[Rfam]
RNA sequence: AGUAUCGUGAGGUGUUGUGGGGAGGAAGCCCGAGACGAGACCCUGGACCCGACGGACAGAAACCGCGUAGAAGGCAUGACAGUGUGGGUGAGCCGGCCCCCUUCGGCGAUGCCCGUCAUCACCAAUGGCGCUGUUGUGUAGACGCGGCGGGGUCGGGGGAUAGCAAACGUU
Numbered sequence: 001a002g003u004a005u006c007g008u009g010a011g012g013u014g015u016u017g018u019g020g021g022g023a024g025g026a027a028g029c030c031c032g033a034g035a036c037g038a039g040a041c042c043c044u045g046g047a048c049c050c051g052a053c054g055g056a057c058a059g060a061a062a063c064c065g066c067g068u069a070g071a072a073g074g075c076a077u078g079a080c081a082g083u084g085u086g087g088g089u090g091a092g093c094c095g096g097c098c099c100c101c102u103u104c105g106g107c108g109a110u111g112c113c114c115g116u117c118a119u120c121a122c123c124a125a126u127g128g129c130g131c132u133g134u135u136g137u138g139u140a141g142a143c144g145c146g147g148c149g150g151g152g153u154c155g156g157g158g159g160a161u162a163g164c165a166a167a168c169g170u171u
Stems, first nucleotide, its partner, number of pairs: 001016006028171001030169001036163001041158006048151004063147006074139003078135007086114004092107004
Record summary:
A member of the RNA family "Group II catalytic intron D1-D4-3" from an Acidimicrobiia bacterium, 171 nucleotides long. From the family's description: Group II introns are found in rRNA, tRNA and mRNA of organelles in fungi, plants and protists, and also in mRNA in bacteria. Pairs were carried over by alignment from the consensus structure.